[Rfam]
This 76-nucleotide RNA from Danionella cerebrum belongs to the Rfam family "mir-193 microRNA precursor family". Pairs were carried over by alignment from the consensus structure, which was predicted with RNAalifold. Rfam 15.1 lists 1,158 matches to the family in 646 species. On this family, see Glazov et al., Genome Res 2008: "A microRNA catalog of the developing chicken embryo identified by a deep sequencing approach". NCBI's taxonomy places the organism under Eukaryota, Cyprinoidei, Danionidae, Danioninae, Danionella.
RNA sequence: UUUCAGAGACGGGACUUUGAGAGCAAGAUGAGUGUAGAUCUCAGCCCAACUGGCCCGCAAAGUCCCGCUUCUGGGA
Dot-bracket structure: ..((((((.((((.(((((.(.((.((.((................)).)).)).).))))).)))).))))))..